[Rfam]
RNA sequence: AUCUAAUAAAAGGUUCCUGAUGGGAUCCUUUUGCAAUUUGCAAAGGAGAAGCCCUGUAACCGAAAGGUGGAAAAAAUUAAUG
Number, nucleotide and partner (000 for none) at each position: 001a000002u000003c000004u000005a000006a000007u000008a000009a000010a000011a000012g000013g000014u072015u071016c070017c069018u000019g000020a000021u000022g054023g053024g052025a000026u047027c046028c045029u044030u043031u000032u000033g000034c000035a000036a000037u000038u000039u000040g000041c000042a000043a030044a029045g028046g027047a026048g000049a000050a000051g000052c024053c023054c022055u000056g000057u000058a000059a000060c067061c066062g000063a000064a000065a000066g061067g060068u000069g017070g016071a015072a014073a000074a000075a000076a000077u000078u000079a000080a000081u000082g000
A member of the RNA family "SAM-III riboswitch aptamer (SMK box)" from Companilactobacillus versmoldensis, 82 nucleotides long. Rfam links the family to the GO terms methionine adenosyltransferase activity and regulation of translational initiation. For this family Rfam cites "S-adenosylmethionine directly inhibits binding of 30S ribosomal subunits to the SMK box translational riboswitch RNA" (Fuchs et al., Proc Natl Acad Sci U S A, 2007).